[Rfam]
RNA sequence: UGGUAGAUGCACCCUGAUUCAAGCCCUAGAGGUUCGCCUCUGGGGUUUUUUCUU
Number, nucleotide and partner (000 for none) at each position: 001u000002g013003g012004u011005a000006g000007a000008u000009g000010c000011a004012c003013c002014c000015u000016g000017a000018u000019u000020c000021a000022a000023g046024c045025c044026c043027u042028a041029g040030a039031g038032g037033u000034u000035c000036g000037c032038c031039u030040c029041u028042g027043g026044g025045g024046u023047u000048u000049u000050u000051u000052c000053u000054u000